This 87-nucleotide sequence from Triticum aestivum belongs to the Rfam family "MIR1120/MIR1122 microRNA precursor family". Taxonomically the source falls in Triticum (Eukaryota, Streptophytina, Petrosaviidae, Triticinae). Its family is annotated with miRNA-mediated post-transcriptional gene silencing and RISC complex in the Gene Ontology. A reference for the family is Yao et al. (2007), "Cloning and characterization of microRNAs from wheat (Triticum aestivum L.)", Genome Biol.
RNA sequence: CUACUCCCUCCAUUUCAUAAUAUAAGAGCGUUUUUGACACCACACUAGUGUCAAAAACACUUUUAUAUUGUGGGACGGAGGGAGUAU
Numbered sequence: 001c002u003a004c005u006c007c008c009u010c011c012a013u014u015u016c017a018u019a020a021u022a023u024a025a026g027a028g029c030g031u032u033u034u035u036g037a038c039a040c041c042a043c044a045c046u047a048g049u050g051u052c053a054a055a056a057a058c059a060c061u062u063u064u065a066u067a068u069u070g071u072g073g074g075a076c077g078g079a080g081g082g083a084g085u086a087u
Stems, first nucleotide, its partner, number of pairs: 003085003007081005013075005019069010030058011